Purine riboswitch aptamer: a 99-nucleotide RNA from Brevibacillus fulvus. The source organism's lineage runs through Bacteria, Bacillati, Bacillota, Bacilli and Brevibacillus.
RNA sequence: UUUAAAAAAAUAAAUAAUACCUGUAUAACCUCAGAAUAUGGCUUGAGGGUCUCUACCAGGAACCAUAAAAUCCUGAUUACAGAAAAUGACACAUUCAUU
Numbered sequence: 001u002u003u004a005a006a007a008a009a010a011u012a013a014a015u016a017a018u019a020c021c022u023g024u025a026u027a028a029c030c031u032c033a034g035a036a037u038a039u040g041g042c043u044u045g046a047g048g049g050u051c052u053c054u055a056c057c058a059g060g061a062a063c064c065a066u067a068a069a070a071u072c073c074u075g076a077u078u079a080c081a082g083a084a085a086a087u088g089a090c091a092c093a094u095u096c097a098u099u
Stems, first nucleotide, its partner, number of pairs: 018085001021082005029048005034042001057075005
The family's consensus secondary structure is taken from published work.